[Rfam]
RNA: Small nucleolar RNA snoR109
Organism: Cuscuta australis
RNA sequence: UGGCUGUAGCUAUAUCGACAUUUUGGAGUUUUCUGGCCGGUUGUUUUUUGGGUUUCCAUACUGUGAGCAUAUCUGCUUACCGAACUCCGUAAAUCU
Numbered sequence: 001u002g003g004c005u006g007u008a009g010c011u012a013u014a015u016c017g018a019c020a021u022u023u024u025g026g027a028g029u030u031u032u033c034u035g036g037c038c039g040g041u042u043g044u045u046u047u048u049u050g051g052g053u054u055u056c057c058a059u060a061c062u063g064u065g066a067g068c069a070u071a072u073c074u075g076c077u078u079a080c081c082g083a084a085c086u087c088c089g090u091a092a093a094u095c096u
Base pairs, nucleotide, nucleotide: 024089025088026087027086028085029084030083035077036076037075039073040072041071043068044067045066046065
Dot-bracket structure: .......................(((((((....(((.(((.((((..................))))..))).))).....))))))).......